[Rfam]
RNA sequence: GGUACACGACAGGGGAGCGCCUCCGUUCACACCGAACUGGUCAGGGCGCUGAGAGUGCGGACCGCCACAGACCCUCGAACCUGAUCCGGCUCGCACCGGCGUAGGGAGUCGACACUCGUCCCCU
Numbered sequence: 001g002g003u004a005c006a007c008g009a010c011a012g013g014g015g016a017g018c019g020c021c022u023c024c025g026u027u028c029a030c031a032c033c034g035a036a037c038u039g040g041u042c043a044g045g046g047c048g049c050u051g052a053g054a055g056u057g058c059g060g061a062c063c064g065c066c067a068c069a070g071a072c073c074c075u076c077g078a079a080c081c082u083g084a085u086c087c088g089g090c091u092c093g094c095a096c097c098g099g100c101g102u103a104g105g106g107a108g109u110c111g112a113c114a115c116u117c118g119u120c121c122c123c124u
Stems, first nucleotide, its partner, number of pairs: 007111004011075004017049005056069002059066002080105004086099004
RNA: TPP riboswitch aptamer (THI element)
Organism: Demequina lutea